Annotation:
This 126-nucleotide RNA sequence from Streptomyces sp. Ru73 belongs to the Rfam family "Streptomyces RNA 3920". It is annotated as a small RNA. From the family's description: Identified by deep sequencing of transcriptome at the end of exponential growth phase. Taxonomically the source falls in Streptomyces (Bacteria, Bacillati, Kitasatosporales, Streptomycetaceae). A search with the family's covariance model found it, with a score of 110 bits.

RNA sequence: GAUAGGACUGUGUCGCUAGCGUGAUUGGACACUGACGCUGAGUCAACUAGCCUUGAUUGUGCGGUUCGUUGCGCAUUGAACCGACGGCGGUCCGAGCCAAGAGGGGGGAGGCUCGGACCGUCUGCU
Numbered sequence: 001g002a003u004a005g006g007a008c009u010g011u012g013u014c015g016c017u018a019g020c021g022u023g024a025u026u027g028g029a030c031a032c033u034g035a036c037g038c039u040g041a042g043u044c045a046a047c048u049a050g051c052c053u054u055g056a057u058u059g060u061g062c063g064g065u066u067c068g069u070u071g072c073g074c075a076u077u078g079a080a081c082c083g084a085c086g087g088c089g090g091u092c093c094g095a096g097c098c099a100a101g102a103g104g105g106g107g108g109a110g111g112c113u114c115g116g117a118c119c120g121u122c123u124g125c126u
Stems, first nucleotide, its partner, number of pairs: 001014004015051004021032003033045004058075007076083001086122013